[Rfam]
RNA sequence: GCCAGCCCUAGGCUGAUCCCCGAAAAACCCGUUUCCCUGACGGGCUGGGCUGGCACCUCAAUUCAGGG
Numbered sequence: 001g002c003c004a005g006c007c008c009u010a011g012g013c014u015g016a017u018c019c020c021c022g023a024a025a026a027a028c029c030c031g032u033u034u035c036c037c038u039g040a041c042g043g044g045c046u047g048g049g050c051u052g053g054c055a056c057c058u059c060a061a062u063u064c065a066g067g068g
Base pairs, nucleotide, nucleotide: 001054002053003052004051005050006049007048008047011021012020028044029043030042031041035068036067037066038065039064040063
The record is a 68-nucleotide RNA from Hydrogenophaga sp. IBVHS1, which matches "int-alpA RNA" in Rfam. Rfam describes the family as follows. Acidobacteria (1 example), Planctomycetes (1 example), Proteobacteria.